[Rfam]
RNA sequence: GGUCAAAAAAGAGACUGAAAAUUGCGCGCUCUCGCGAGAUCGCGUAUACUUUUCGCGUUGACGUAACACAGUGUGCUUUACGGCUACCACCCGUAAAACCCUGAAAAAACCUCGCUCCGGCGGGGUUUUUU
Numbered sequence: 001g002g003u004c005a006a007a008a009a010a011g012a013g014a015c016u017g018a019a020a021a022u023u024g025c026g027c028g029c030u031c032u033c034g035c036g037a038g039a040u041c042g043c044g045u046a047u048a049c050u051u052u053u054c055g056c057g058u059u060g061a062c063g064u065a066a067c068a069c070a071g072u073g074u075g076c077u078u079u080a081c082g083g084c085u086a087c088c089a090c091c092c093g094u095a096a097a098a099c100c101c102u103g104a105a106a107a108a109a110c111c112u113c114g115c116u117c118c119g120g121c122g123g124g125g126u127u128u129u130u131u
Base pairs, nucleotide, nucleotide: 002062003061004060005059006058018052019051020050023046024045025044026043027042028041030039031038032037069103070102071101077096079095080094081093082092083091105130106129107128108127109126110125111124112123113122114121115120
The family of this 131-nucleotide RNA sequence from Klebsiella sp. RIT-PI-d is "istR Hfq binding RNA". Rfam classes the family as an antitoxin RNA. The literature on the family includes a 2004 paper in Curr Biol by Vogel et al., "The small RNA IstR inhibits synthesis of an SOS-induced toxic peptide". Taxonomically the source falls in Klebsiella (Bacteria, Pseudomonadati, Pseudomonadota, Gammaproteobacteria). Pairs were carried over by alignment from the consensus structure, which was predicted with CMfinder.